A member of the RNA family "Group II catalytic intron D1-D4-2" from Hathewaya proteolytica, 116 nucleotides long. Pairs were carried over by alignment from the consensus structure. About the family: Group II introns are found in rRNA, tRNA and mRNA of organelles in fungi, plants and protists, and also in mRNA in bacteria.
Nucleotides: 116
Stems, first nucleotide, its partner, number of pairs: 001015005017040005023034004046115001049090005054080002057077003061073003096112006
Number, partner (000 for none) and nucleotide at each position: 001015g002014g003013u004012g005011g006000a007000g008000g009000g010000c011005c012004c013003a014002c015001c016000c017040a018039a019038a020037u021036c022000g023034c024033c025032g026031u027000a028000c029000a030000g031026g032025c033024g034023g035000a036021g037020a038019u039018u040017u041000u042000a043000a044000a045000c046115u047000a048000c049090c050089u051088u052087a053086a054080g055079g056000u057077g058076c059075u060000g061073u062072a063071g064000a065000c066000a067000a068000a069000a070000g071063c072062u073061a074000u075059g076058g077057u078000a079055u080054u081000g082000a083000g084000c085000a086053u087052u088051a089050a090049g091000u092000a093000a094000a095000a096112g097111g098110c099109a100108g101107u102000a103000c104000u105000a106000a107101a108100c109099u110098g111097u112096c113000a114000u115046g116000u